[Rfam]
RNA sequence: UUGAUCUUUCACAAGAUACCUCAUAUAAAUUCGAGAAUAUGGCUCGAAAGUUUCUACCUGGCUACCGUAAAUGGCUGGACUAUGAGGAGACAAAUGGUUGUC
Numbered sequence: 001u002u003g004a005u006c007u008u009u010c011a012c013a014a015g016a017u018a019c020c021u022c023a024u025a026u027a028a029a030u031u032c033g034a035g036a037a038u039a040u041g042g043c044u045c046g047a048a049a050g051u052u053u054c055u056a057c058c059u060g061g062c063u064a065c066c067g068u069a070a071a072u073g074g075c076u077g078g079a080c081u082a083u084g085a086g087g088a089g090a091c092a093a094a095u096g097g098u099u100g101u102c
Stems, first nucleotide, its partner, number of pairs: 019087007030048006058078007